[Rfam]
Description: The record is a 134-nucleotide RNA from Austrofundulus limnaeus, which matches "Small nucleolar RNA SNORA3/SNORA45 family" in Rfam. For this family Rfam cites "RNomics: an experimental approach that identifies 201 candidates for novel, small, non-messenger RNAs in mouse" (Huttenhofer et al., EMBO J, 2001). Taxonomically the source falls in Austrofundulus (Eukaryota, Chordata, Teleostomi, Actinopteri). Rfam classes the family as an H/ACA-box small nucleolar RNA.
RNA sequence: AGCGAGGCUAGAGUCACGCCUGGACACUGACCCGUUGUCCUGGUGUGCUAGAGCACUCGUAGAGUAACAGGUCUUUGCAUAUUCAUUGGCUGUAGUCUCAUGUGGCCCAGCCAAUCACCAGCUCAGACACACCA
Numbered sequence: 001a002g003c004g005a006g007g008c009u010a011g012a013g014u015c016a017c018g019c020c021u022g023g024a025c026a027c028u029g030a031c032c033c034g035u036u037g038u039c040c041u042g043g044u045g046u047g048c049u050a051g052a053g054c055a056c057u058c059g060u061a062g063a064g065u066a067a068c069a070g071g072u073c074u075u076u077g078c079a080u081a082u083u084c085a086u087u088g089g090c091u092g093u094a095g096u097c098u099c100a101u102g103u104g105g106c107c108c109a110g111c112c113a114a115u116c117a118c119c120a121g122c123u124c125a126g127a128c129a130c131a132c133c134a
Stems, first nucleotide, its partner, number of pairs: 002060005007054003012049002015047006023039004073126002077122002085115005091109002096104001

Record summary:
The members of this family belong to the H/ACA class of snoRNAs which are thought to guide the sites of modification of uridines to pseudouridines. This family includes mouse snoMBI-28 and human homologues ACA3 (SNORA3) and ACA3-2 (SNORA45). Both ACA3 and ACA3-2 share the same host gene. MBI-28, ACA3 and ACA3-2 are all predicted to guide the pseudouridylation of residues in 28S rRNA.